[Rfam]
RNA: small nucleolar RNA snoR126
RNA sequence: UGGCUGCGAUGACAAUAAUAUACUUUUCUCGAAUCUGAGAUUUGUUCGAAGGACAAGUUUUGAUGAGCUAUGUACGUGUCUGAGCCAA
Numbered sequence: 001u002g003g004c005u006g007c008g009a010u011g012a013c014a015a016u017a018a019u020a021u022a023c024u025u026u027u028c029u030c031g032a033a034u035c036u037g038a039g040a041u042u043u044g045u046u047c048g049a050a051g052g053a054c055a056a057g058u059u060u061u062g063a064u065g066a067g068c069u070a071u072g073u074a075c076g077u078g079u080c081u082g083a084g085c086c087a088a
Base pairs, nucleotide, nucleotide: 001087002086003085004084
Dot-bracket structure: ((((...............................................................................)))).